[Rfam]
RNA sequence: UACACUCACUACUGUAAGUCACUCUGGAUAACAGUGUCUGCUAAAUGACUAAAA
Numbered sequence: 001u002a003c004a005c006u007c008a009c010u011a012c013u014g015u016a017a018g019u020c021a022c023u024c025u026g027g028a029u030a031a032c033a034g035u036g037u038c039u040g041c042u043a044a045a046u047g048a049c050u051a052a053a054a
Base pairs, nucleotide, nucleotide: 013043014041015040016039020036021035022034023033025031
UnaL2 LINE 3' element: a 54-nucleotide RNA sequence from Hucho hucho. The eel long interspersed element (LINE) UnaL2 and its partner short interspersed element (SINE) share a conserved 3' tail containing a stem-loop that is critical for their retrotransposition. Presumably, the first step of retrotransposition is the recognition of their 3' tails by UnaL2-encoded reverse transcriptase. The solution structure of a 17-nucleotide RNA derived from the 3' tail of UnaL2 was determined by NMR. It is annotated as a cis-regulatory element. A reference for the family is Baba et al. (2004), "Solution structure of an RNA stem-loop derived from the 3' conserved region of eel LINE UnaL2", RNA. It scores 63 bits against the family's covariance model. Gene Ontology term of the family: transposition, RNA-mediated.